A member of the RNA family "PyrR binding site" from Oceanobacillus sp. J11TS1, 107 nucleotides long. The organism belongs to Oceanobacillus, within Bacteria. The match comes from Rfam's covariance-model search (55 bits).
RNA sequence: AUAACUUUUAAUCAAAUCCAGAGAGAUUUGAAAGGUUGUUUAGUGAAACGAAUGCUUAUUUGAUGUAUUCGUCUACCUCUCUGCAACCUUUGCAGGGAGUUUUUUUU
Numbered sequence: 001a002u003a004a005c006u007u008u009u010a011a012u013c014a015a016a017u018c019c020a021g022a023g024a025g026a027u028u029u030g031a032a033a034g035g036u037u038g039u040u041u042a043g044u045g046a047a048a049c050g051a052a053u054g055c056u057u058a059u060u061u062g063a064u065g066u067a068u069u070c071g072u073c074u075a076c077c078u079c080u081c082u083g084c085a086a087c088c089u090u091u092g093c094a095g096g097g098a099g100u101u102u103u104u105u106u107u
Stems, first nucleotide, its partner, number of pairs: 003037007013030006040071001042069004047064001049062005075101001077099010